[Rfam]
RNA sequence: AGCUUCCUCGAAUCGACACAACAAUCUGCAGCAUUGUUGUGCGACCUGCAGUGUCAUUCGAGCAAGCC
Number, nucleotide and partner (000 for none) at each position: 001a000002g067003c066004u065005u064006c000007c062008u000009c060010g059011a058012a057013u056014c000015g000016a000017c000018a000019c000020a038021a037022c036023a035024a034025u033026c000027u000028g000029c000030a000031g000032c000033a025034u024035u023036g022037u021038u020039g000040u000041g000042c000043g055044a054045c053046c000047u000048g000049c000050a000051g000052u000053g045054u044055c043056a013057u012058u011059c010060g009061a000062g007063c000064a005065a004066g003067c002068c000
RNA: bZIP non canonical Hac1/Xbp1 intron